[Rfam]
RNA: Aggregatibacter sRNA 22
RNA sequence: GUGCGGUCACAAAAUCCGAAGGAUUUUGAACGUUGGCUUUGCCAACGGCUCCGAAGGAGCGAAUAAAUCACUUGCGUGAUUUAUGAGUAAUAGUUAAAAC
Numbered sequence: 001g002u003g004c005g006g007u008c009a010c011a012a013a014a015u016c017c018g019a020a021g022g023a024u025u026u027u028g029a030a031c032g033u034u035g036g037c038u039u040u041g042c043c044a045a046c047g048g049c050u051c052c053g054a055a056g057g058a059g060c061g062a063a064u065a066a067a068u069c070a071c072u073u074g075c076g077u078g079a080u081u082u083a084u085g086a087g088u089a090a091u092a093g094u095u096a097a098a099a100c
Stems, first nucleotide, its partner, number of pairs: 010028008031047007048060005063084009088096003